[Rfam]
RNA sequence: AGUGCGACAGGGUCGACCGCGCGGGUCACCAUCAGAUAGUUCCGGAGCACGAUGGAGUGCCGGUUCUC
Number, nucleotide and partner (000 for none) at each position: 001a000002g000003u000004g000005c062006g061007a000008c059009a058010g000011g030012g029013u028014c000015g027016a026017c025018c024019g000020c000021g000022c000023g000024g018025g017026u016027c015028a013029c012030c011031a000032u000033c000034a000035g000036a000037u054038a053039g000040u052041u051042c000043c000044g048045g000046a000047g000048c044049a000050c000051g041052a040053u038054g037055g000056a000057g000058u009059g008060c000061c006062g005063g000064u000065u000066c000067u000068c000
The record is a 68-nucleotide sequence from Rhodococcus oxybenzonivorans, which matches "ASdes TB sRNA" in Rfam. The organism belongs to Rhodococcus, within Bacteria. The base pairs follow the family's consensus structure, which is taken from published work. Rfam 15.1 lists 1,192 matches to the family in 825 species. A reference for the family is Arnvig and Young (2009), "Identification of small RNAs in Mycobacterium tuberculosis", Mol Microbiol.